[Rfam]
RNA: Proteobacterial sRNA sX6
RNA sequence: ACAGCGAGGAGACCUCCCCAUGAAGAAGUUCCUGACCAUCGCAGCCAUUGCCGCCGCCGUCGUGGCCGUGCCGCUGGCCAUGGCCCAGAACGCCGGACAGGGCCAGUCCACCGCGCAGCAGGGCGACCAGGCCGAGGCCAAGGCCCAGUCCGAGGCCGACGCCAAGGCCAAGCGCCGCGCCGCUGCCAGCGCCGAGAUGAAGGCCAAGGGCCAGCAGGCGCCGCAGCAGGAAGAGGAAGAAGAGGCCAAAAAGAAGCGCUGAACCCGCUUCCUGGCCCCCCAGACGCCCCGGCUUGCCGGGGCGUCUUCGUUCCUGCCCCUUGGGCUU
Numbered sequence: 001a002c003a004g005c006g007a008g009g010a011g012a013c014c015u016c017c018c019c020a021u022g023a024a025g026a027a028g029u030u031c032c033u034g035a036c037c038a039u040c041g042c043a044g045c046c047a048u049u050g051c052c053g054c055c056g057c058c059g060u061c062g063u064g065g066c067c068g069u070g071c072c073g074c075u076g077g078c079c080a081u082g083g084c085c086c087a088g089a090a091c092g093c094c095g096g097a098c099a100g101g102g103c104c105a106g107u108c109c110a111c112c113g114c115g116c117a118g119c120a121g122g123g124c125g126a127c128c129a130g131g132c133c134g135a136g137g138c139c140a141a142g143g144c145c146c147a148g149u150c151c152g153a154g155g156c157c158g159a160c161g162c163c164a165a166g167g168c169c170a171a172g173c174g175c176c177g178c179g180c181c182g183c184u185g186c187c188a189g190c191g192c193c194g195a196g197a198u199g200a201a202g203g204c205c206a207a208g209g210g211c212c213a214g215c216a217g218g219c220g221c222c223g224c225a226g227c228a229g230g231a232a233g234a235g236g237a238a239g240a241a242g243a244g245g246c247c248a249a250a251a252a253g254a255a256g257c258g259c260u261g262a263a264c265c266c267g268c269u270u271c272c273u274g275g276c277c278c279c280c281c282a283g284a285c286g287c288c289c290c291g292g293c294u295u296g297c298c299g300g301g302g303c304g305u306c307u308u309c310g311u312u313c314c315u316g317c318c319c320c321u322u323g324g325g326c327u328u
Base pairs, nucleotide, nucleotide: 018236019235025173028168029167033164034163037161039159040158050072052070053069054068056066057065076133077132078131079130090107091106092103093102094101108125142157143156144155179224180223185204186203187202210219211218256326257325259323282307283306284305285304286303287302288301289300290299291298292297